[Rfam]
RNA sequence: GCGAGAAUCACAGCGCAAUUCUCCUCUGGCAUGGAGGCUGGUGGGUCUAGCAGGAUCUGUCAGCAAUGCUACUGCCAUCUAUGCCAAAGGAGAAUUGCCCUGCCAUUCAGAA
Numbered sequence: 001g002c003g004a005g006a007a008u009c010a011c012a013g014c015g016c017a018a019u020u021c022u023c024c025u026c027u028g029g030c031a032u033g034g035a036g037g038c039u040g041g042u043g044g045g046u047c048u049a050g051c052a053g054g055a056u057c058u059g060u061c062a063g064c065a066a067u068g069c070u071a072c073u074g075c076c077a078u079c080u081a082u083g084c085c086a087a088a089g090g091a092g093a094a095u096u097g098c099c100c101u102g103c104c105a106u107u108c109a110g111a112a
Stems, first nucleotide, its partner, number of pairs: 005108004011102003015098005021092004027086009
RNA: mir-399 microRNA precursor family
Organism: Panicum miliaceum